[Rfam]
RNA: FMN riboswitch aptamer (RFN element)
RNA sequence: GAAAAUCUUCAGGGCAGGGUGAAAUUCCCGACCGGCGGUAAAGCCCGCGAGCUAAAGUAAAUUUAGCAGAUUUGGUUAAAUUCCAAAGCCGACAGUAAAGUCUGGAUGAAAGAAGAUAUUA
Numbered sequence: 001g002a003a004a005a006u007c008u009u010c011a012g013g014g015c016a017g018g019g020u021g022a023a024a025u026u027c028c029c030g031a032c033c034g035g036c037g038g039u040a041a042a043g044c045c046c047g048c049g050a051g052c053u054a055a056a057g058u059a060a061a062u063u064u065a066g067c068a069g070a071u072u073u074g075g076u077u078a079a080a081u082u083c084c085a086a087a088g089c090c091g092a093c094a095g096u097a098a099a100g101u102c103u104g105g106a107u108g109a110a111a112g113a114a115g116a117u118a119u120u121a
Stems, first nucleotide, its partner, number of pairs: 003119001005117006017029003031101002033091002035048004043089002051067003071087005093104003